[Rfam]
RNA sequence: AAGUGAGCUUCGAUGCAUCCGAUGAUGAAGCUGCAUAGGGCAGAUUCUGAGCUGGGAGCUGCGGUUCCCGAACGCUGAUCUUCCGUUUAUGCGGACUGAGGAUGCGACUCGGGGU
Numbered sequence: 001a002a003g004u005g006a007g008c009u010u011c012g013a014u015g016c017a018u019c020c021g022a023u024g025a026u027g028a029a030g031c032u033g034c035a036u037a038g039g040g041c042a043g044a045u046u047c048u049g050a051g052c053u054g055g056g057a058g059c060u061g062c063g064g065u066u067c068c069c070g071a072a073c074g075c076u077g078a079u080c081u082u083c084c085g086u087u088u089a090u091g092c093g094g095a096c097u098g099a100g101g102a103u104g105c106g107a108c109u110c111g112g113g114g115u
Stems, first nucleotide, its partner, number of pairs: 012108001014106007031094006038084003043079001046078002049075001051073001053071001055069002